The family of this 265-nucleotide RNA sequence from Clostridiales bacterium CHKCI001 is "Bacterial large signal recognition particle RNA". A search with the family's covariance model found it, with a score of 191 bits. Rfam classes the family as a non-coding RNA gene.
RNA sequence: AUGCGCAGCCGGGGAGUUAGCGGUGUCCUGUACCCGCAAUCCGCUAUAGCGGGGGUCAUAUUCUGGCUGAGGGUGUUUUAUUUGCAGAGCUGCCCUUUAUAAGUGGCGUUGAAGCCUGGGUCUUACGCAACAGGACUUUGUGAACCGUGUCAGGUCAGGAAUGGAGCAGCACUAAGCAGAGCUCCCUGUGUGCCGUAAGGGCGCCUGGGCCGAGUUAACUGUAAAGGUAACGUCUGUGAAUUGCAUUCGAAGCUGGAAUGCGCAU
Numbered sequence: 001a002u003g004c005g006c007a008g009c010c011g012g013g014g015a016g017u018u019a020g021c022g023g024u025g026u027c028c029u030g031u032a033c034c035c036g037c038a039a040u041c042c043g044c045u046a047u048a049g050c051g052g053g054g055g056u057c058a059u060a061u062u063c064u065g066g067c068u069g070a071g072g073g074u075g076u077u078u079u080a081u082u083u084g085c086a087g088a089g090c091u092g093c094c095c096u097u098u099a100u101a102a103g104u105g106g107c108g109u110u111g112a113a114g115c116c117u118g119g120g121u122c123u124u125a126c127g128c129a130a131c132a133g134g135a136c137u138u139u140g141u142g143a144a145c146c147g148u149g150u151c152a153g154g155u156c157a158g159g160a161a162u163g164g165a166g167c168a169g170c171a172c173u174a175a176g177c178a179g180a181g182c183u184c185c186c187u188g189u190g191u192g193c194c195g196u197a198a199g200g201g202c203g204c205c206u207g208g209g210c211c212g213a214g215u216u217a218a219c220u221g222u223a224a225a226g227g228u229a230a231c232g233u234c235u236g237u238g239a240a241u242u243g244c245a246u247u248c249g250a251a252g253c254u255g256g257a258a259u260g261c262g263c264a265u
Stems, first nucleotide, its partner, number of pairs: 001265006008056003011029004016024003033053005062257007071248005078243001080241008091229002095226006103219002105216003114210008122199006128190002131188004136181006147172004155164003
The source organism's lineage runs through Bacteria, Bacillati, Bacillota, Clostridia and Eubacteriales.